[Rfam]
Nucleotides: 213
Stems, first nucleotide, its partner, number of pairs: 001030011038213005044207001045150002048147004053080009103142003106137003110133002113128004118123001151180008160171003194205002197202001
Number, partner (000 for none) and nucleotide at each position: 001030a002029u003028g004027c005026a006025u007024a008023u009022g010021c011020a012000u013000a014000c015000a016000u017000g018000c019000a020011u021010g022009c023008a024007u025006a026005u027004g028003c029002a030001u031000u032000c033000a034000u035000g036000u037000g038213u039212g040211u041210a042209u043000g044207c045150a046149c047000a048147u049146g050145c051144a052000u053080g054079c055078a056077u057076g058075u059074a060073u061072g062000c063000a064000u065000a066000u067000g068000c069000a070000u071000g072061u073060a074059u075058g076057u077056a078055u079054g080053c081000a082000u083000g084000u085000a086000u087000g088000u089000a090000u091000g092000c093000a094000u095000g096000u097000a098000u099000a100000c101000a102000a103142g104141c105140a106137u107136g108135c109000a110133u111132a112000u113128g114127u115126a116125u117000a118123c119000a120000u121000a122000u123118g124000c125116a126115u127114g128113c129000a130000u131000g132111u133110a134000u135108g136107c137106a138000u139000a140105u141104g142103c143000a144051u145050g146049u147048a148000u149046g150045u151180a152179u153178g154177c155176a156175u157174a158173u159000g160171c161170a162169u163000a164000c165000a166000u167000g168000c169162a170161u171160g172000c173158a174157u175156a176155u177154g178153c179152a180151u181000a182000c183000a184000c185000g186000c187000a188000u189000g190000c191000a192000u193000a194205u195204g196000c197202a198000u199000a200000c201000a202197u203000a204195c205194a206000u207044g208000a209042a210041u211040g212039c213038a